Notes:
Shown here is a 56-nucleotide sequence from Ruegeria sp. R11, a member of the family "COG3860 RNA". The family's consensus secondary structure is taken from published work. Lineage of the source: Bacteria > Pseudomonadati > Alphaproteobacteria > Roseobacteraceae > Ruegeria. It is one of the family's seed sequences.

RNA sequence: CGGUCGGCAGACACCGAGGCGUCGCUGCCCCUCUUCAGGGGAUGCUAAACCUGCCA
Number, nucleotide and partner (000 for none) at each position: 001c016002g015003g014004u013005c000006g000007g000008c000009a000010g000011a000012c000013a004014c003015c002016g001017a000018g000019g000020c000021g000022u000023c000024g000025c000026u000027g000028c041029c040030c039031c038032u000033c000034u000035u000036c000037a000038g031039g030040g029041g028042a000043u000044g000045c000046u000047a000048a000049a000050c000051c000052u000053g000054c000055c000056a000